[Rfam]
The record is a 129-nucleotide RNA from Herbinix hemicellulosilytica, which matches "TPP riboswitch aptamer (THI element)" in Rfam. The organism belongs to Herbinix, within Bacteria. Vitamin B(1) in its active form thiamin pyrophosphate (TPP) is an essential coenzyme that is synthesised by coupling of pyrimidine and thiazole moieties in bacteria.
RNA sequence: AUUAAAUGCUAGGGGAGCGGAAGCUGAGAAGUGUGCGUUAAUGUUGGCUUUGUAUAAGCUGCAUUUGCAUACUGACCCUCAAAACUUGAUCCGGGUAAUGCCGGCGAAAGGAAGCAUUCAGUGUUCCUC
Numbered sequence: 001a002u003u004a005a006a007u008g009c010u011a012g013g014g015g016a017g018c019g020g021a022a023g024c025u026g027a028g029a030a031g032u033g034u035g036c037g038u039u040a041a042u043g044u045u046g047g048c049u050u051u052g053u054a055u056a057a058g059c060u061g062c063a064u065u066u067g068c069a070u071a072c073u074g075a076c077c078c079u080c081a082a083a084a085c086u087u088g089a090u091c092c093g094g095g096u097a098a099u100g101c102c103g104g105c106g107a108a109a110g111g112a113a114g115c116a117u118u119c120a121g122u123g124u125u126c127c128u129c
Stems, first nucleotide, its partner, number of pairs: 006117005011079004016073001017024002031072007085110003091104004